[Rfam]
RNA sequence: CUAUAUGCACCCUGUAGAACCGAAUUUGUGUUAACAAUUACAAAACCGCAAAUUCGCCUCUACGGGAAUACAUGGG
Numbered sequence: 001c002u003a004u005a006u007g008c009a010c011c012c013u014g015u016a017g018a019a020c021c022g023a024a025u026u027u028g029u030g031u032u033a034a035c036a037a038u039u040a041c042a043a044a045a046c047c048g049c050a051a052a053u054u055c056g057c058c059u060c061u062a063c064g065g066g067a068a069u070a071c072a073u074g075g076g
Base pairs, nucleotide, nucleotide: 002074003073004072006070007069010066011065012064016061017060018059021056022055023054024053025052026051027050028049029048030047

Annotation: A member of the RNA family "mir-10 microRNA precursor family" from Oncorhynchus kisutch, 76 nucleotides long. A search with the family's covariance model found it, with a score of 54 bits. For this family Rfam cites "microRNAs: tiny regulators with great potential" (Ambros, Cell, 2001).